[Rfam]
RNA sequence: UCCUGACAACUCCAUCGGGGGGUUGACACUAGCCACGACAGGAGAUCCAAAUG
Number, nucleotide and partner (000 for none) at each position: 001u000002c042003c041004u040005g039006a000007c025008a024009a023010c022011u021012c000013c000014a000015u000016c000017g000018g000019g000020g000021g011022g010023u009024u008025g007026a000027c000028a000029c000030u000031a000032g000033c000034c000035a000036c000037g000038a000039c005040a004041g003042g002043a000044g000045a000046u000047c000048c000049a000050a000051a000052u000053g000
Record summary:
A member of the RNA family "Mu-gpT-DE RNA", 53 nucleotides long. The family's consensus secondary structure is taken from published work. By type it is a small RNA. Rfam's curators put it in the seed alignment.